[Rfam]
RNA: glmS glucosamine-6-phosphate activated ribozyme aptamer
Organism: Domibacillus iocasae
RNA sequence: GUUUUACCAAAAGCGCCUGAACUGAACGGGACGACCAUACGUUCAGUUGACGAGGAGGGGGUUUAUCGAUGAUUCGGCGGAUACCUCCCGGCUGCAGGUACACAGCUGUUACGUUCAUCCUUAAAACAGGGGGGCAACCCCGUGGACAAAGGGAGCGGACAUGUGCCUAA
Numbered sequence: 001g002u003u004u005u006a007c008c009a010a011a012a013g014c015g016c017c018u019g020a021a022c023u024g025a026a027c028g029g030g031a032c033g034a035c036c037a038u039a040c041g042u043u044c045a046g047u048u049g050a051c052g053a054g055g056a057g058g059g060g061g062u063u064u065a066u067c068g069a070u071g072a073u074u075c076g077g078c079g080g081a082u083a084c085c086u087c088c089c090g091g092c093u094g095c096a097g098g099u100a101c102a103c104a105g106c107u108g109u110u111a112c113g114u115u116c117a118u119c120c121u122u123a124a125a126a127c128a129g130g131g132g133g134g135c136a137a138c139c140c141c142g143u144g145g146a147c148a149a150a151g152g153g154a155g156c157g158g159a160c161a162u163g164u165g166c167c168u169a170a
Base pairs, nucleotide, nucleotide: 020048021047022046023045024044025043026042027041057088058087059086060085061084066077067076068075069074089108090107091106092105093104094103113160114159115158116157118154119153127144128143130141131140132139133138